RNA sequence: UCCGGGGGAAGCUCACUGCCGAGGCCACCAACGGGGUGCGCGUCACCCUACGCCCCGCCUCGGGGAAGGUCUGAGGGAAGGGCUGCCCGCGGCUCUAGCAGAGCUCCGCCCACGAGGGGCGGGUGAGCCACCAGCAAGGCGGGGGGCGCCGCGCAUCUUGGGUCGGGCUGGGCAGGAGAAACCGUUCAGAGGGUUCCGGUCACUCCGGUUAAACCCCCGGUGGAUGCUCGUGACCCCGCGGUGCUUUGAGACAGACUCACGGCCGGCGAUCGCUGAGUCCAAUGGGUGAGGUGGGGCAUCGCCCUACAACCCAAUUCAGACUACUCUCCUCCGGA
Numbered sequence: 001u002c003c004g005g006g007g008g009a010a011g012c013u014c015a016c017u018g019c020c021g022a023g024g025c026c027a028c029c030a031a032c033g034g035g036g037u038g039c040g041c042g043u044c045a046c047c048c049u050a051c052g053c054c055c056c057g058c059c060u061c062g063g064g065g066a067a068g069g070u071c072u073g074a075g076g077g078a079a080g081g082g083c084u085g086c087c088c089g090c091g092g093c094u095c096u097a098g099c100a101g102a103g104c105u106c107c108g109c110c111c112a113c114g115a116g117g118g119g120c121g122g123g124u125g126a127g128c129c130a131c132c133a134g135c136a137a138g139g140c141g142g143g144g145g146g147c148g149c150c151g152c153g154c155a156u157c158u159u160g161g162g163u164c165g166g167g168c169u170g171g172g173c174a175g176g177a178g179a180a181a182c183c184g185u186u187c188a189g190a191g192g193g194u195u196c197c198g199g200u201c202a203c204u205c206c207g208g209u210u211a212a213a214c215c216c217c218c219g220g221u222g223g224a225u226g227c228u229c230g231u232g233a234c235c236c237c238g239c240g241g242u243g244c245u246u247u248g249a250g251a252c253a254g255a256c257u258c259a260c261g262g263c264c265g266g267c268g269a270u271c272g273c274u275g276a277g278u279c280c281a282a283u284g285g286g287u288g289a290g291g292u293g294g295g296g297c298a299u300c301g302c303c304c305u306a307c308a309a310c311c312c313a314a315u316u317c318a319g320a321c322u323a324c325u326c327u328c329c330u331c332c333g334g335a
Stems, first nucleotide, its partner, number of pairs: 001335004007329003012290006020062005034048005071319005081264004091105005106122006123260005129254001145245009291307007

Shown here is a 335-nucleotide RNA from Syrrhaptes paradoxus, a member of the family "Nuclear RNase P". Ribonuclease P (RNase P) is a ubiquitous endoribonuclease, found in archaea, bacteria and eukarya as well as chloroplasts and mitochondria. Clan: RNaseP clan. It scores 169 bits against the family's covariance model. It is annotated as a ribozyme.